[Rfam]
RNA sequence: GAAGUUGGCCAGACAGUCGCCGCGUGCUUGCACGGGGAGGAAAGUCCGGGCUCCACAGGGCAGGAUGCUGGCUAACGGCCAGGCGUCGCGAGGCGACGGAAAGUGGAACAGAGAGCUGAACCGCCGAUGGCCGGACUUGUUACCCGCAAGGGUGGCAAGGUCUUUUCAGGCAGGGCUUGUCCCUGAAUGAGAAUCCGCAAGGACGGCACAGGCAAGGGUGAAAAGGUGGACUCCUUCGGGAGCCGCCGGGGGUAACCCCGGCGCGGUAAGAGCGCACCGCGGACGCAGUGAUGCGGACGGCAGGCUAAACCCCAUCCGGAGCAAGACCAAAUAGGGGUACAUUGGCGUGGCCCGCGCUGUACCCGGGUAGGUUGCUUGAGCCUGUCGGUAACGGCAGGACUAGAGGAAUGACUGUUCAACGACAGAACCCGGCUUACCGGCUGACUUCCCAC
Numbered sequence: 001g002a003a004g005u006u007g008g009c010c011a012g013a014c015a016g017u018c019g020c021c022g023c024g025u026g027c028u029u030g031c032a033c034g035g036g037g038a039g040g041a042a043a044g045u046c047c048g049g050g051c052u053c054c055a056c057a058g059g060g061c062a063g064g065a066u067g068c069u070g071g072c073u074a075a076c077g078g079c080c081a082g083g084c085g086u087c088g089c090g091a092g093g094c095g096a097c098g099g100a101a102a103g104u105g106g107a108a109c110a111g112a113g114a115g116c117u118g119a120a121c122c123g124c125c126g127a128u129g130g131c132c133g134g135a136c137u138u139g140u141u142a143c144c145c146g147c148a149a150g151g152g153u154g155g156c157a158a159g160g161u162c163u164u165u166u167c168a169g170g171c172a173g174g175g176c177u178u179g180u181c182c183c184u185g186a187a188u189g190a191g192a193a194u195c196c197g198c199a200a201g202g203a204c205g206g207c208a209c210a211g212g213c214a215a216g217g218g219u220g221a222a223a224a225g226g227u228g229g230a231c232u233c234c235u236u237c238g239g240g241a242g243c244c245g246c247c248g249g250g251g252g253u254a255a256c257c258c259c260g261g262c263g264c265g266g267u268a269a270g271a272g273c274g275c276a277c278c279g280c281g282g283a284c285g286c287a288g289u290g291a292u293g294c295g296g297a298c299g300g301c302a303g304g305c306u307a308a309a310c311c312c313c314a315u316c317c318g319g320a321g322c323a324a325g326a327c328c329a330a331a332u333a334g335g336g337g338u339a340c341a342u343u344g345g346c347g348u349g350g351c352c353c354g355c356g357c358u359g360u361a362c363c364c365g366g367g368u369a370g371g372u373u374g375c376u377u378g379a380g381c382c383u384g385u386c387g388g389u390a391a392c393g394g395c396a397g398g399a400c401u402a403g404a405g406g407a408a409u410g411a412c413u414g415u416u417c418a419a420c421g422a423c424a425g426a427a428c429c430c431g432g433c434u435u436a437c438c439g440g441c442u443g444a445c446u447u448c449c450c451a452c
Stems, first nucleotide, its partner, number of pairs: 001448010012416007020037002023034004042435003046432005051321004058353004063317005068082005083097001084095004098312002103310002105306002121217002123213003128208002131205001225278004279301001280299002284295004325373004335364006344358005381398007
Rfam assigns this 452-nucleotide sequence from Vogesella sp. LIG4 to the family "Bacterial RNase P class A". The source organism's lineage runs through Bacteria, Pseudomonadati, Pseudomonadota, Betaproteobacteria and Vogesella.